[Rfam]
RNA sequence: AAAGCCCGUCCGGUAGUGCUUGACCAGCGGCCGGAAGCGAGUCUUGCGCCGUACGUGGGUAACCCGUCCGGCGAAGCGUAGACAGUCAGUCUGAAAGCCAUGCUAUUGAGCUUCGAAAGACCAGUUGCGGGAGCCUCUGUUUUUCCGACCCCUGGGUCCACGCUGCGGCACUUUAUUGGUCUGGUGCCAGCAGUCCUGCCGGAGUCGACUGAACA
Numbered sequence: 001a002a003a004g005c006c007c008g009u010c011c012g013g014u015a016g017u018g019c020u021u022g023a024c025c026a027g028c029g030g031c032c033g034g035a036a037g038c039g040a041g042u043c044u045u046g047c048g049c050c051g052u053a054c055g056u057g058g059g060u061a062a063c064c065c066g067u068c069c070g071g072c073g074a075a076g077c078g079u080a081g082a083c084a085g086u087c088a089g090u091c092u093g094a095a096a097g098c099c100a101u102g103c104u105a106u107u108g109a110g111c112u113u114c115g116a117a118a119g120a121c122c123a124g125u126u127g128c129g130g131g132a133g134c135c136u137c138u139g140u141u142u143u144u145c146c147g148a149c150c151c152c153u154g155g156g157u158c159c160a161c162g163c164u165g166c167g168g169c170a171c172u173u174u175a176u177u178g179g180u181c182u183g184g185u186g187c188c189a190g191c192a193g194u195c196c197u198g199c200c201g202g203a204g205u206c207g208a209c210u211g212a213a214c215a
Stems, first nucleotide, its partner, number of pairs: 009035005017029004022181003037086002041083004045078002047073005053067003057064002108206001110205006127199006133158001134155002163193004167188006

This 215-nucleotide RNA sequence belongs to the Rfam family "Group II catalytic intron D1-D4-6".
The pairing is the family consensus, mapped onto this sequence.
Group II introns are found in rRNA, tRNA and mRNA of organelles in fungi, plants and protists, and also in mRNA in bacteria.